[Rfam]
The family of this 108-nucleotide sequence from Viridibacillus arenosi is "SAM riboswitch aptamer (S box leader)".

RNA sequence: UUCUUAUCAAGAGAAGCAGAGGGAUAAGGCCCUGUGAAGCUUCAGCAACCUCUGAUUUAAUCAGAAAGGUGCUAAGUCCUACAAGACAAAAGUCUUGGAAGAUAAGAA
Numbered sequence: 001u002u003c004u005u006a007u008c009a010a011g012a013g014a015a016g017c018a019g020a021g022g023g024a025u026a027a028g029g030c031c032c033u034g035u036g037a038a039g040c041u042u043c044a045g046c047a048a049c050c051u052c053u054g055a056u057u058u059a060a061u062c063a064g065a066a067a068g069g070u071g072c073u074a075a076g077u078c079c080u081a082c083a084a085g086a087c088a089a090a091a092g093u094c095u096u097g098g099a100a101g102a103u104a105a106g107a108a
Base pairs, nucleotide, nucleotide: 001108002107003106004105005104006103007102008101013043014042015041016040017039021032022031023030027080028079029078044073045072046071047070049069050068051065052064053063054062077100082097083096084095085094086093087092
Clan: SAM clan. The source organism's lineage runs through Bacteria, Bacillati, Bacillota, Viridibacillus and Viridibacillus arenosi.